RNA sequence: UGUUGGUGUAUUGGCAAGAUGUCGGCAUAGCUGAUAUUAUUUUAACAGUGCGGCUAUGCUACAUCCAGUCAAUUUUCCCAAUA
Numbered sequence: 001u002g003u004u005g006g007u008g009u010a011u012u013g014g015c016a017a018g019a020u021g022u023c024g025g026c027a028u029a030g031c032u033g034a035u036a037u038u039a040u041u042u043u044a045a046c047a048g049u050g051c052g053g054c055u056a057u058g059c060u061a062c063a064u065c066c067a068g069u070c071a072a073u074u075u076u077c078c079c080a081a082u083a
Base pairs, nucleotide, nucleotide: 005078006077008075010073011072012071013070014069015068018065019064020063021062024060025059026058027057028056029055030054031053
The record is an 83-nucleotide sequence from Hermetia illucens, which matches "mir-31 microRNA precursor family" in Rfam.
For this family Rfam cites "The small RNA profile during Drosophila melanogaster development" (Aravin et al., Dev Cell, 2003).
Rfam links the family to the GO terms RISC complex and gene silencing by miRNA.